[Rfam]
RNA sequence: CCAGUGGGCCAGGUGGCCGCUGCGGCGCGCGAGCGUCGUAGAGGAAAGUCCGGACUCCGCCGGGCAAGGGUGCCGGGUAACUCCCGGGCGGCGUGAGCCGACGGAAAGUGCAACAGAAACAUACCGCCAGCGUGGGUUCGCCUGCGCCGGUAAGGGCGAAAUGGUGCGGUAAGAGCGCACCGGGGUCCUGGUAACAGGGCCGCCGUGCAAACCCCACCCGGAGCAAGGCAAAAUAGGGGAGGAGGGGCGCCCGGCCCGUUUGUACUCCCGGGUCUGCCGCUAGAGCGUCACGGUAACGUGGCGUCGAGAGAAAUGGCCAUCCCGCUGGCUGCUAGCUGCUAGCUUCUAGCUGCUAGGAGCCGGCGUGACAGAAUCCGGCUUAUCGGCCCACUGGAUCG
Numbered sequence: 001c002c003a004g005u006g007g008g009c010c011a012g013g014u015g016g017c018c019g020c021u022g023c024g025g026c027g028c029g030c031g032a033g034c035g036u037c038g039u040a041g042a043g044g045a046a047a048g049u050c051c052g053g054a055c056u057c058c059g060c061c062g063g064g065c066a067a068g069g070g071u072g073c074c075g076g077g078u079a080a081c082u083c084c085c086g087g088g089c090g091g092c093g094u095g096a097g098c099c100g101a102c103g104g105a106a107a108g109u110g111c112a113a114c115a116g117a118a119a120c121a122u123a124c125c126g127c128c129a130g131c132g133u134g135g136g137u138u139c140g141c142c143u144g145c146g147c148c149g150g151u152a153a154g155g156g157c158g159a160a161a162u163g164g165u166g167c168g169g170u171a172a173g174a175g176c177g178c179a180c181c182g183g184g185g186u187c188c189u190g191g192u193a194a195c196a197g198g199g200c201c202g203c204c205g206u207g208c209a210a211a212c213c214c215c216a217c218c219c220g221g222a223g224c225a226a227g228g229c230a231a232a233a234u235a236g237g238g239g240a241g242g243a244g245g246g247g248c249g250c251c252c253g254g255c256c257c258g259u260u261u262g263u264a265c266u267c268c269c270g271g272g273u274c275u276g277c278c279g280c281u282a283g284a285g286c287g288u289c290a291c292g293g294u295a296a297c298g299u300g301g302c303g304u305c306g307a308g309a310g311a312a313a314u315g316g317c318c319a320u321c322c323c324g325c326u327g328g329c330u331g332c333u334a335g336c337u338g339c340u341a342g343c344u345u346c347u348a349g350c351u352g353c354u355a356g357g358a359g360c361c362g363g364c365g366u367g368a369c370a371g372a373a374u375c376c377g378g379c380u381u382a383u384c385g386g387c388c389c390a391c392u393g394g395a396u397c398g
Stems, first nucleotide, its partner, number of pairs: 001394010011383001012321007020041009046381003050378005055223004063257002068219005073087005088102001089100004103214002108212002110208003124155002126151003130147007163181006182203001183201002186199005227278004237269005248262002252258001285304008
Rfam assigns this 398-nucleotide RNA sequence from bacterium SCGC AG-212-C10 to the family "Bacterial RNase P class A".